[Rfam]
The record is a 154-nucleotide RNA sequence from Thermosyntropha lipolytica, which matches "glmS glucosamine-6-phosphate activated ribozyme aptamer" in Rfam. Pairs were carried over by alignment from the consensus structure, which is taken from published work. A reference for the family is Jansen et al. (2006), "Backbone and nucleobase contacts to glucosamine-6-phosphate in the glmS ribozyme", Nat Struct Mol Biol. The match comes from Rfam's covariance-model search (112 bits).
RNA sequence: AAAGGGCAAAAAGCGCCUGACCCGAAGAUACUUCGGGUGACGAGGAGAGGGUUUAUCGAGUUUUCGGCGGGUGCCCUCCGGUGAGCCGCCACCGUAAGCCUGGCUACAAAACCGGCUAGCAAUAGCCGGGACAAAAAGCCCGGCCGCGGCCAUU
Numbered sequence: 001a002a003a004g005g006g007c008a009a010a011a012a013g014c015g016c017c018u019g020a021c022c023c024g025a026a027g028a029u030a031c032u033u034c035g036g037g038u039g040a041c042g043a044g045g046a047g048a049g050g051g052u053u054u055a056u057c058g059a060g061u062u063u064u065c066g067g068c069g070g071g072u073g074c075c076c077u078c079c080g081g082u083g084a085g086c087c088g089c090c091a092c093c094g095u096a097a098g099c100c101u102g103g104c105u106a107c108a109a110a111a112c113c114g115g116c117u118a119g120c121a122a123u124a125g126c127c128g129g130g131a132c133a134a135a136a137a138g139c140c141c142g143g144c145c146g147c148g149g150c151c152a153u154u
Stems, first nucleotide, its partner, number of pairs: 020038008047078005056067004079094005098144003102140003112129007